[Rfam]
RNA sequence: UAAGCGCGCCGUGACUGACGGGCAAGCGUGGAAGACCACGGGGGAGCAGCGCGCGAUUUCCGCCGACCGUCUGGGCAAGCCGA
Numbered sequence: 001u002a003a004g005c006g007c008g009c010c011g012u013g014a015c016u017g018a019c020g021g022g023c024a025a026g027c028g029u030g031g032a033a034g035a036c037c038a039c040g041g042g043g044g045a046g047c048a049g050c051g052c053g054c055g056a057u058u059u060c061c062g063c064c065g066a067c068c069g070u071c072u073g074g075g076c077a078a079g080c081c082g083a
Stems, first nucleotide, its partner, number of pairs: 004054006011047002015043002017071005028039004062076003